Lysine riboswitch aptamer: a 187-nucleotide RNA sequence from Paenisporosarcina antarctica. Rfam 15.1 lists 3,224 matches to the family in 1,923 species. It scores 107 bits against the family's covariance model. About the family: Riboswitches are metabolite binding domains within certain messenger RNAs that serve as precision sensors for their corresponding targets. Allosteric rearrangement of mRNA structure is mediated by ligand binding, and this results in modulation of gene expression. Taxonomically the source falls in Paenisporosarcina (Bacteria, Bacillati, Bacillota, Caryophanaceae).
RNA sequence: UCGAUGGGUAGAGGCCGCAUGACUUAUUAGUAACAUACGCGAGGAUGAUAACGAAGACCGUAUGUAAAAGGGAGUUUUGCCGAAGUAAAAUGAUUGUGUCUAACAGUAUUUUAUUGGGGUUAUUCUAAAUAAGAAUAACACUAUCAUUUAUAGGCGAAACGCAUAUAAAUGGUGAGCUACAGAUCGU
Numbered sequence: 001u002c003g004a005u006g007g008g009u010a011g012a013g014g015c016c017g018c019a020u021g022a023c024u025u026a027u028u029a030g031u032a033a034c035a036u037a038c039g040c041g042a043g044g045a046u047g048a049u050a051a052c053g054a055a056g057a058c059c060g061u062a063u064g065u066a067a068a069a070g071g072g073a074g075u076u077u078u079g080c081c082g083a084a085g086u087a088a089a090a091u092g093a094u095u096g097u098g099u100c101u102a103a104c105a106g107u108a109u110u111u112u113a114u115u116g117g118g119g120u121u122a123u124u125c126u127a128a129a130u131a132a133g134a135a136u137a138a139c140a141c142u143a144u145c146a147u148u149u150a151u152a153g154g155c156g157a158a159a160c161g162c163a164u165a166u167a168a169a170u171g172g173u174g175a176g177c178u179a180c181a182g183a184u185c186g187u
Stems, first nucleotide, its partner, number of pairs: 008180004017080003021076005033065007084115009094105001116142002119139008144172009